RNA sequence: ACAAUUGUCAAAGGGGAGUAGCGUUAAGGAUGUUUGGCAUCCUUAAAACAAAGUCGUCAUUACAUGAUUUCGUUUUUCAGAAGUCAUCGGCUUUGUUGGCAUUCUGAAAAAAUGUCCAGCAAGACCUUUGCCUAUAAGGGCAGAGGUCUUGCUUUUUGUCUUUAUAGGAAGAUU
Numbered sequence: 001a002c003a004a005u006u007g008u009c010a011a012a013g014g015g016g017a018g019u020a021g022c023g024u025u026a027a028g029g030a031u032g033u034u035u036g037g038c039a040u041c042c043u044u045a046a047a048a049c050a051a052a053g054u055c056g057u058c059a060u061u062a063c064a065u066g067a068u069u070u071c072g073u074u075u076u077u078c079a080g081a082a083g084u085c086a087u088c089g090g091c092u093u094u095g096u097u098g099g100c101a102u103u104c105u106g107a108a109a110a111a112a113u114g115u116c117c118a119g120c121a122a123g124a125c126c127u128u129u130g131c132c133u134a135u136a137a138g139g140g141c142a143g144a145g146g147u148c149u150u151g152c153u154u155u156u157u158g159u160c161u162u163u164a165u166a167g168g169a170a171g172a173u174u
Stems, first nucleotide, its partner, number of pairs: 025045005047097010064087008
RNA: Manganese Mn2+ riboswitch aptamer (yybP-ykoY)
Organism: Heyndrickxia ginsengihumi